RNA sequence: UUUUUGACGUCUUGGUGAUUUUGUAUAAUCGUGGGAAUAAGGCUCACAAGUUUCUACCUUGCUGCCGUAAACGGCAAGACUACAAAACGAAGGCUUUUUUGU
Numbered sequence: 001u002u003u004u005u006g007a008c009g010u011c012u013u014g015g016u017g018a019u020u021u022u023g024u025a026u027a028a029u030c031g032u033g034g035g036a037a038u039a040a041g042g043c044u045c046a047c048a049a050g051u052u053u054c055u056a057c058c059u060u061g062c063u064g065c066c067g068u069a070a071a072c073g074g075c076a077a078g079a080c081u082a083c084a085a086a087a088c089g090a091a092g093g094c095u096u097u098u099u100u101g102u
Stems, first nucleotide, its partner, number of pairs: 019087007029049001031047005058078007